[Rfam]
About this RNA:
Rfam assigns this 122-nucleotide RNA from Gossypium anomalum to the family "MIR394 microRNA precursor family".

RNA sequence: CUUACAGAGUUUAUUGGCAUUCUGUCCACCUCCAAUCAUGGAAACAAAAAAAACCCUUUUCUUUUUGCUCUCUGAUCUCAUCUUUCAUGGAGGUGGGCAUACUGCCAACUGGGCUCUGUUGG
Numbered sequence: 001c002u003u004a005c006a007g008a009g010u011u012u013a014u015u016g017g018c019a020u021u022c023u024g025u026c027c028a029c030c031u032c033c034a035a036u037c038a039u040g041g042a043a044a045c046a047a048a049a050a051a052a053a054c055c056c057u058u059u060u061c062u063u064u065u066u067g068c069u070c071u072c073u074g075a076u077c078u079c080a081u082c083u084u085u086c087a088u089g090g091a092g093g094u095g096g097g098c099a100u101a102c103u104g105c106c107a108a109c110u111g112g113g114c115u116c117u118g119u120u121g122g
Stems, first nucleotide, its partner, number of pairs: 011112001014108006023099011
Lineage of the source: Eukaryota > Viridiplantae > Spermatophyta > eudicotyledons > Gossypium.